RNA sequence: CGAGCAAGUCAGAUGAUCGCGUGGGCAUGUUCCGCAAGGACGCUCACGAGGAAAGUCCGAGCUCCAUAGGGCAGGGUGCCGGGUAACCCCCGGUGGAGGCAACUCCAAGGAAAGUGCAACAGAAAGGAAACCGCCCGGCGCAUAACAAUGUAUAUCUACGAUAACUUUAUUUAUAUAAUAUCUGAAUUAAAAAUUCAAUAACAUUGUAUGUAAGUUAUACAUUUUUAUGCGUCGGGUAAGGAUGAAAGGGUGAGGUAAGAGCUCACCGGCGAUCAGGUAACUGAUCGGCUAUGUAAACCCCACCUGGUGCAAGACCAAGUUAGGACAAAAAAAGCAGUGGCCCGCUGUGUCCAAUGGUAGGUCGCUUGAGCCUUUCGGUGACGGAAGGCCUAGAUAGAUGGUCAUCUAAUACAGAACUCGGCUUACAGACUAGCUCGCUCU
Numbered sequence: 001c002g003a004g005c006a007a008g009u010c011a012g013a014u015g016a017u018c019g020c021g022u023g024g025g026c027a028u029g030u031u032c033c034g035c036a037a038g039g040a041c042g043c044u045c046a047c048g049a050g051g052a053a054a055g056u057c058c059g060a061g062c063u064c065c066a067u068a069g070g071g072c073a074g075g076g077u078g079c080c081g082g083g084u085a086a087c088c089c090c091c092g093g094u095g096g097a098g099g100c101a102a103c104u105c106c107a108a109g110g111a112a113a114g115u116g117c118a119a120c121a122g123a124a125a126g127g128a129a130a131c132c133g134c135c136c137g138g139c140g141c142a143u144a145a146c147a148a149u150g151u152a153u154a155u156c157u158a159c160g161a162u163a164a165c166u167u168u169a170u171u172u173a174u175a176u177a178a179u180a181u182c183u184g185a186a187u188u189a190a191a192a193a194u195u196c197a198a199u200a201a202c203a204u205u206g207u208a209u210g211u212a213a214g215u216u217a218u219a220c221a222u223u224u225u226u227a228u229g230c231g232u233c234g235g236g237u238a239a240g241g242a243u244g245a246a247a248g249g250g251u252g253a254g255g256u257a258a259g260a261g262c263u264c265a266c267c268g269g270c271g272a273u274c275a276g277g278u279a280a281c282u283g284a285u286c287g288g289c290u291a292u293g294u295a296a297a298c299c300c301c302a303c304c305u306g307g308u309g310c311a312a313g314a315c316c317a318a319g320u321u322a323g324g325a326c327a328a329a330a331a332a333a334g335c336a337g338u339g340g341c342c343c344g345c346u347g348u349g350u351c352c353a354a355u356g357g358u359a360g361g362u363c364g365c366u367u368g369a370g371c372c373u374u375u376c377g378g379u380g381a382c383g384g385a386a387g388g389c390c391u392a393g394a395u396a397g398a399u400g401g402u403c404a405u406c407u408a409a410u411a412c413a414g415a416a417c418u419c420g421g422c423u424u425a426c427a428g429a430c431u432a433g434c435u436c437g438c439u440c441u
Base pairs, nucleotide, nucleotide: 001437002436003435004434005433007431008430009429010428012406013405014404015403016402017401018400020048021047022046023045024044025043026042028040053424054423055422057421058420059419060418061417062309064307065306069343070342071341072340074305075304076303077302078301079093080092081091082090083089094108095106096105097104098103109300110299114298115297116294117293118292131241132240133237134236135235136234137233138232139231140230141229142228143227144226145225249267250266251265252264253263254262269289270287271286272285273284274283275282276281313363314362315361316360323352324351325350326349334348335347336346337345338344370389371388372387373386374385375384376383377382
Source information:
Bacterial RNase P class A: a 441-nucleotide RNA from Alkalibacter saccharofermentans. It is annotated as a ribozyme.